[Rfam]
RNA sequence: CUUGGGUCUGACAAUCCAGGCUAUGAUCUAUCGUCCCAACGGGACU
Numbered sequence: 001c002u003u004g005g006g007u008c009u010g011a012c013a014a015u016c017c018a019g020g021c022u023a024u025g026a027u028c029u030a031u032c033g034u035c036c037c038a039a040c041g042g043g044a045c046u
Stems, first nucleotide, its partner, number of pairs: 001020007033045005
Description: Rfam assigns this 46-nucleotide RNA sequence from Membranihabitans marinus to the family "Acido-Lenti-1 RNA". The family's RNA type in Rfam is small RNA. Taxonomically the source falls in Membranihabitans (Bacteria, Pseudomonadati, Bacteroidota, Saprospiria). Pairs were carried over by alignment from the consensus structure, which is taken from published work.